[Rfam]
RNA sequence: CCAGCCGGCCGGACGGCCGCCGCUUCGCGCGGAGGAAAGUCCGGGCUCCACGGAGACACGGCGCCGGAUAACGUCCGGCGGGGGUGACCCCAGGGACAGCGCCACAGAGAGAAAACCGCCCCGCAUGCGGGGUAAGGGUGAAAGGGUGCGGUAAGAGCGCACCGCGGUGCCGGCAACGGCAACGGCAUGGCAAGCCCCGCCGGGAGCAAGACCGAAUAGGGGUGGUGGAGCCCGCAAGGGCUCGGGCCUGUCUUCCGGCCCUGCCACCCGGGUUGGUUGCUCGAGACGGUCGGCAACGACCGCCCCAGAGGAAUGGCCGUCACGUCCGUCUGCCUGCAAGGGUGGGCGGGCCCUACAGAACCCGGCUUACAGGCCGGCUGGCUCC
Numbered sequence: 001c002c003a004g005c006c007g008g009c010c011g012g013a014c015g016g017c018c019g020c021c022g023c024u025u026c027g028c029g030c031g032g033a034g035g036a037a038a039g040u041c042c043g044g045g046c047u048c049c050a051c052g053g054a055g056a057c058a059c060g061g062c063g064c065c066g067g068a069u070a071a072c073g074u075c076c077g078g079c080g081g082g083g084g085u086g087a088c089c090c091c092a093g094g095g096a097c098a099g100c101g102c103c104a105c106a107g108a109g110a111g112a113a114a115a116c117c118g119c120c121c122c123g124c125a126u127g128c129g130g131g132g133u134a135a136g137g138g139u140g141a142a143a144g145g146g147u148g149c150g151g152u153a154a155g156a157g158c159g160c161a162c163c164g165c166g167g168u169g170c171c172g173g174c175a176a177c178g179g180c181a182a183c184g185g186c187a188u189g190g191c192a193a194g195c196c197c198c199g200c201c202g203g204g205a206g207c208a209a210g211a212c213c214g215a216a217u218a219g220g221g222g223u224g225g226u227g228g229a230g231c232c233c234g235c236a237a238g239g240g241c242u243c244g245g246g247c248c249u250g251u252c253u254u255c256c257g258g259c260c261c262u263g264c265c266a267c268c269c270g271g272g273u274u275g276g277u278u279g280c281u282c283g284a285g286a287c288g289g290u291c292g293g294c295a296a297c298g299a300c301c302g303c304c305c306c307a308g309a310g311g312a313a314u315g316g317c318c319g320u321c322a323c324g325u326c327c328g329u330c331u332g333c334c335u336g337c338a339a340g341g342g343u344g345g346g347c348g349g350g351c352c353c354u355a356c357a358g359a360a361c362c363c364g365g366c367u368u369a370c371a372g373g374c375c376g377g378c379u380g381g382c383u384c385c
Base pairs, nucleotide, nucleotide: 001381002380003379004378005377006376007375008374009373010372011370012321013320014319015318016317017316018315020032021031022030023029037368038367039366041365042364043363044362045361046206047205048204049203054253055252056251057250059202060201061200062199063198064078065077066076067075068074079093080091081090082089083088094197095196099195100194101191102190103189116137117136118133119132120131121130122129123128145163146162147161148160149159150158164186165184166183168181169180170179171178172177210278211277212276213275220269221268222267223266224265225264244261245260246259247258248257285304287302288301289300290299291298292297

The record is a 385-nucleotide sequence from Rhizobiales bacterium GAS113, which matches "Bacterial RNase P class A" in Rfam. The organism belongs to Hyphomicrobiales, within Bacteria. Pairs were carried over by alignment from the consensus structure, which is taken from published work. A search with the family's covariance model found it, with a score of 287 bits.